[Rfam]
The family of this 125-nucleotide RNA sequence from Methylomusa anaerophila is "FMN riboswitch aptamer (RFN element)". The source organism's lineage runs through Bacteria, Bacillati, Bacillota, Negativicutes and Methylomusa.
RNA sequence: UCCAAUCUUUAAGCUGAGUAGUUACAUCUUUUGAUUCCUGACCGGCGGUAUAGCCCGCGAGCCGUUAUGGCUGAUCCGGUUGAAUUCCGGAGCCGACAGUAUAGUCUGGAUGGAAAAAGGCUAGU
Numbered sequence: 001u002c003c004a005a006u007c008u009u010u011a012a013g014c015u016g017a018g019u020a021g022u023u024a025c026a027u028c029u030u031u032u033g034a035u036u037c038c039u040g041a042c043c044g045g046c047g048g049u050a051u052a053g054c055c056c057g058c059g060a061g062c063c064g065u066u067a068u069g070g071c072u073g074a075u076c077c078g079g080u081u082g083a084a085u086u087c088c089g090g091a092g093c094c095g096a097c098a099g100u101a102u103a104g105u106c107u108g109g110a111u112g113g114a115a116a117a118a119g120g121c122u123a124g125u
Stems, first nucleotide, its partner, number of pairs: 004122001006120005017039002041105002043095002045058004053093002061071003075091005097108003